[Rfam]
RNA: FMN riboswitch aptamer (RFN element)
RNA sequence: GAGUAUUUUCGGGGCAAGGUUAGAUUCCUUACCGAUGGUAAAAGUCCAUGAGCUAAUAAAACAGCAUGAUUCAGUGAAAUUCUGAAACCGACGGUACAGUCCGGAUGAGAGAAAAUACCC
Numbered sequence: 001g002a003g004u005a006u007u008u009u010c011g012g013g014g015c016a017a018g019g020u021u022a023g024a025u026u027c028c029u030u031a032c033c034g035a036u037g038g039u040a041a042a043a044g045u046c047c048a049u050g051a052g053c054u055a056a057u058a059a060a061a062c063a064g065c066a067u068g069a070u071u072c073a074g075u076g077a078a079a080u081u082c083u084g085a086a087a088c089c090g091a092c093g094g095u096a097c098a099g100u101c102c103g104g105a106u107g108a109g110a111g112a113a114a115a116u117a118c119c120c
Base pairs, nucleotide, nucleotide: 003118004117005116006115007114008113009112010111017029018028019027031100032099033090034089035049036048037047038046044088045087054064070086071085072084073083074082092103093102094101